MIR2118 microRNA precursor family: a 164-nucleotide sequence from Setaria italica. For this family Rfam cites "A diverse set of microRNAs and microRNA-like small RNAs in developing rice grains" (Zhu et al., Genome Res, 2008). The match comes from Rfam's covariance-model search (115 bits). Pairs were carried over by alignment from the consensus structure, which was predicted with RNAalifold. Rfam 15.1 lists 2,377 matches to the family in 45 species.

RNA sequence: GUGAGACGGGAAAAGGAUGAAAUGAGGGCCUAAGAGCAGUGGGCACGGGAACAUGGAGGAAAGCUCAAUUGAUGAUUACCUCUUGGAGGUGGGAUCUGCUUAAAGCUUUCCUAAUGCCUCCCAUGCCUAUUGUUCUUUGGUGCUCCUUCCUUUUCCUUUUGAUU
Numbered sequence: 001g002u003g004a005g006a007c008g009g010g011a012a013a014a015g016g017a018u019g020a021a022a023u024g025a026g027g028g029c030c031u032a033a034g035a036g037c038a039g040u041g042g043g044c045a046c047g048g049g050a051a052c053a054u055g056g057a058g059g060a061a062a063g064c065u066c067a068a069u070u071g072a073u074g075a076u077u078a079c080c081u082c083u084u085g086g087a088g089g090u091g092g093g094a095u096c097u098g099c100u101u102a103a104a105g106c107u108u109u110c111c112u113a114a115u116g117c118c119u120c121c122c123a124u125g126c127c128u129a130u131u132g133u134u135c136u137u138u139g140g141u142g143c144u145c146c147u148u149c150c151u152u153u154u155c156c157u158u159u160u161g162a163u164u
Stems, first nucleotide, its partner, number of pairs: 009155005015149003024145003029140002032137007040129006047122004052116003056112001058111007